The family of this 183-nucleotide RNA from Nomascus leucogenys is "U2 spliceosomal RNA". The source organism's lineage runs through Eukaryota, Opisthokonta, Bilateria, Teleostomi and Nomascus. Rfam describes the family as follows. U2 is a small nuclear RNA (snRNA) component of the spliceosome (involved in pre-mRNA splicing). Complementary binding between U2 snRNA (in an area lying towards the 5' end but 3' to hairpin I) and the branchpoint sequence (BPS) of the intron results the bulging out of an unpaired adenosine, on the BPS, which initiates a nucleophilic attack at the intronic 5' splice site, thus starting the first of two transesterification reactions that mediate splicing.

[Rfam]
RNA sequence: ACCACUUCUCCGCCUGGGUAAGAUCAAGUGUAGUAUCUAUUUAUAUCAGUUUAAUAUCUGAUACAUCCUCUAUCGGAGGAUAAUAUAUUGAAUGGAUUUUUGGAGCUAGGAGAUGGACUAAUAACUUGCCCCACUCCACCUGUUGACCUGGUAUUACAGUACCUCCAGGAAUGUGGCAUCCUC
Numbered sequence: 001a002c003c004a005c006u007u008c009u010c011c012g013c014c015u016g017g018g019u020a021a022g023a024u025c026a027a028g029u030g031u032a033g034u035a036u037c038u039a040u041u042u043a044u045a046u047c048a049g050u051u052u053a054a055u056a057u058c059u060g061a062u063a064c065a066u067c068c069u070c071u072a073u074c075g076g077a078g079g080a081u082a083a084u085a086u087a088u089u090g091a092a093u094g095g096a097u098u099u100u101u102g103g104a105g106c107u108a109g110g111a112g113a114u115g116g117a118c119u120a121a122u123a124a125c126u127u128g129c130c131c132c133a134c135u136c137c138a139c140c141u142g143u144u145g146a147c148c149u150g151g152u153a154u155u156a157c158a159g160u161a162c163c164u165c166c167a168g169g170a171a172u173g174u175g176g177c178a179u180c181c182u183c
Base pairs, nucleotide, nucleotide: 007023008022009021013017044063045062046061047060048059049058065081066080067079068078069077070076071075109137110136111135112134115131116130140176141175142174143173147169148168149167150166151165
Gene Ontology terms of the family: U2 snRNP, pre-mRNA branch point binding and mRNA branch site recognition. Its Rfam clan is "U2 clan". On this family, see Berglund et al., RNA 2001: "Crystal structure of a model branchpoint-U2 snRNA duplex containing bulged adenosines". The base pairs follow the family's consensus structure, which is taken from published work. Rfam classes the family as a spliceosomal small nuclear RNA.